Background: Small nucleolar RNA SNORA47: a 148-nucleotide RNA sequence from Xenopus tropicalis. A reference for the family is Huttenhofer et al. (2001), "RNomics: an experimental approach that identifies 201 candidates for novel, small, non-messenger RNAs in mouse", EMBO J. It is annotated as an H/ACA-box small nucleolar RNA.
RNA sequence: UGGAGGCAUGAGAAGGUGAGGCAGUCCAUCCAUGCUGCUCUCUACUGGUUAUAUCCUCCUACAGUAUCAAUGCGCCGGCUGCACGGAUUCCUAUGCCCAUUAGAGAGCCCGGCAGCCUCCGCAUUAACAUUCCAUUGGGCGAGAUUAG
Dot-bracket structure: .(((((........((((.((((((........))))))...))))........))))).................(.(...(.(((......(...............................)....))).)..).)........